[Rfam]
RNA sequence: AAAAGAAUUGGCCUUCCGCAGACUGCUUUCAGGAGCCGUUUGUAAACCACCUUAUGCUGCAUUGGCCGGAAACGGUUUCUGUGGUGAACGAUAAGGAAAAACGGGAACUUGAUUCCUGUAGGU
Numbered sequence: 001a002a003a004a005g006a007a008u009u010g011g012c013c014u015u016c017c018g019c020a021g022a023c024u025g026c027u028u029u030c031a032g033g034a035g036c037c038g039u040u041u042g043u044a045a046a047c048c049a050c051c052u053u054a055u056g057c058u059g060c061a062u063u064g065g066c067c068g069g070a071a072a073c074g075g076u077u078u079c080u081g082u083g084g085u086g087a088a089c090g091a092u093a094a095g096g097a098a099a100a101a102c103g104g105g106a107a108c109u110u111g112a113u114u115c116c117u118g119u120a121g122g123u
Base pairs, nucleotide, nucleotide: 003015004014005013018043019042020041021040022039023038025036026035027034028033048122050096051095052094053093054092055091056085057084059082060081061080064077065076066075101119102118103117104116105115106114
RNA: Group II catalytic intron D1-D4-2
Organism: Hanamia caeni